[Rfam]
RNA sequence: UUCUAGGAAACUUUAGCUUUUGAACUGUUCUGUCACUCUCUGACAGAGAACAAUUUGUUAUUUGACAGAGAGGAACAAAACAGUUCAAUAGCUAAAGCGUCCUAUAAC
Numbered sequence: 001u002u003c004u005a006g007g008a009a010a011c012u013u014u015a016g017c018u019u020u021u022g023a024a025c026u027g028u029u030c031u032g033u034c035a036c037u038c039u040c041u042g043a044c045a046g047a048g049a050a051c052a053a054u055u056u057g058u059u060a061u062u063u064g065a066c067a068g069a070g071a072g073g074a075a076c077a078a079a080a081c082a083g084u085u086c087a088a089u090a091g092c093u094a095a096a097g098c099g100u101c102c103u104a105u106a107a108c
Stems, first nucleotide, its partner, number of pairs: 001107002004104003011097008020088009029069007049059004
RNA: mir-8517 microRNA precursor family
Organism: Plutella xylostella